[Rfam]
Rfam assigns this 115-nucleotide RNA sequence from Butyrivibrio sp. YAB3001 to the family "FMN riboswitch aptamer (RFN element)". Pairs were carried over by alignment from the consensus structure, which is taken from published work.

RNA sequence: GAUUUUCUUCAGGGCAGGGUGUAAUUCCCUACCGGCGGUAUAGCCCGCGAGCCUUAUGGCAUGAUUCGGUGAGAUUCCGAGGCCGACAGUAUAGUCUGGAUGAGAGAAGAGUAAU
Numbered sequence: 001g002a003u004u005u006u007c008u009u010c011a012g013g014g015c016a017g018g019g020u021g022u023a024a025u026u027c028c029c030u031a032c033c034g035g036c037g038g039u040a041u042a043g044c045c046c047g048c049g050a051g052c053c054u055u056a057u058g059g060c061a062u063g064a065u066u067c068g069g070u071g072a073g074a075u076u077c078c079g080a081g082g083c084c085g086a087c088a089g090u091a092u093a094g095u096c097u098g099g100a101u102g103a104g105a106g107a108a109g110a111g112u113a114a115u
Stems, first nucleotide, its partner, number of pairs: 003113001005111006017029003031095002033085002035048004043083002053059001065081005087098003